[Rfam]
RNA sequence: CACACACGGGCUUUGGUGUCUGUCCGGGAGAAAUCCGGCUGGGACCUCCGGUGGCAAAGGGCAUUUUGCCUCUUUGUCGAUGGCUCGUGGAGGCUUGAACCGGAAAGGAAAAUA
Numbered sequence: 001c002a003c004a005c006a007c008g009g010g011c012u013u014u015g016g017u018g019u020c021u022g023u024c025c026g027g028g029a030g031a032a033a034u035c036c037g038g039c040u041g042g043g044a045c046c047u048c049c050g051g052u053g054g055c056a057a058a059g060g061g062c063a064u065u066u067u068g069c070c071u072c073u074u075u076g077u078c079g080a081u082g083g084c085u086c087g088u089g090g091a092g093g094c095u096u097g098a099a100c101c102g103g104a105a106a107g108g109a110a111a112a113u114a
Stems, first nucleotide, its partner, number of pairs: 001092001003090001005089007015046002025037002028035001053078008

Rfam assigns this 114-nucleotide RNA sequence from Aquamicrobium sp. LC103 to the family "rpsB sRNA". By type it is a small RNA. The match comes from Rfam's covariance-model search (42 bits). The source organism's lineage runs through Bacteria, Pseudomonadati, Alphaproteobacteria, Phyllobacteriaceae and Aquamicrobium. The literature on the family includes a 2009 paper in BMC Genomics by Meyer et al., "Identification of candidate structured RNAs in the marine organism 'Candidatus Pelagibacter ubique'".